[Rfam]
RNA sequence: AAAAAAAAUGGGCGGAACGCCCAUCUUCUCUUACUGGUGGUCGCACCUGAGCCGCACAUUGAAUCCGUACGCCCAGCGACUCCGCGAUUAUAGCGUUUU
Numbered sequence: 001a002a003a004a005a006a007a008a009u010g011g012g013c014g015g016a017a018c019g020c021c022c023a024u025c026u027u028c029u030c031u032u033a034c035u036g037g038u039g040g041u042c043g044c045a046c047c048u049g050a051g052c053c054g055c056a057c058a059u060u061g062a063a064u065c066c067g068u069a070c071g072c073c074c075a076g077c078g079a080c081u082c083c084g085c086g087a088u089u090a091u092a093g094c095g096u097u098u099u
Base pairs, nucleotide, nucleotide: 008024009023010022011021012020013019014018038090039089040088041087042086043085044084049082050081051080053078054077055076